[Rfam]
RNA: Plant signal recognition particle RNA
Organism: Lupinus angustifolius
RNA sequence: GCCGAGCUUGGUAACUCUUGCUUGUGACCCAAGUGGGGGGAUCAAAGUGAUGGAACAUGACUAUGGUUUGUCUAGGUUGGGUUGGUGUAUGCUCCAUGUUAGCUUGCCCAUUCCAAGUUGAGAGUUGAGUCAUGGUGCUUGAGUGAAGGCUUGAGUGUCAUGACUCGUAGACAAGAGGGCAAAGCGUGAGGCUGGAUUCACAGAGCAGCGAACACUUCUGGCUCCUGACAGUGGAGGGAUCACAGGCUGCUGCAUUACCCAUCUCACAAUGCCUAGUGAGCCGAGCCACCUGAACCAUCACUUUU
Numbered sequence: 001g002c003c004g005a006g007c008u009u010g011g012u013a014a015c016u017c018u019u020g021c022u023u024g025u026g027a028c029c030c031a032a033g034u035g036g037g038g039g040g041a042u043c044a045a046a047g048u049g050a051u052g053g054a055a056c057a058u059g060a061c062u063a064u065g066g067u068u069u070g071u072c073u074a075g076g077u078u079g080g081g082u083u084g085g086u087g088u089a090u091g092c093u094c095c096a097u098g099u100u101a102g103c104u105u106g107c108c109c110a111u112u113c114c115a116a117g118u119u120g121a122g123a124g125u126u127g128a129g130u131c132a133u134g135g136u137g138c139u140u141g142a143g144u145g146a147a148g149g150c151u152u153g154a155g156u157g158u159c160a161u162g163a164c165u166c167g168u169a170g171a172c173a174a175g176a177g178g179g180c181a182a183a184g185c186g187u188g189a190g191g192c193u194g195g196a197u198u199c200a201c202a203g204a205g206c207a208g209c210g211a212a213c214a215c216u217u218c219u220g221g222c223u224c225c226u227g228a229c230a231g232u233g234g235a236g237g238g239a240u241c242a243c244a245g246g247c248u249g250c251u252g253c254a255u256u257a258c259c260c261a262u263c264u265c266a267c268a269a270u271g272c273c274u275a276g277u278g279a280g281c282c283g284a285g286c287c288a289c290c291u292g293a294a295c296c297a298u299c300a301c302u303u304u305u
Stems, first nucleotide, its partner, number of pairs: 002039002004023004010017002028037003044304010056292002059289001062285001064283004069279001072276006079264004084259004089255003093252001100249007108238002111236005117229004122224004127166018167172001174219005185210003192203003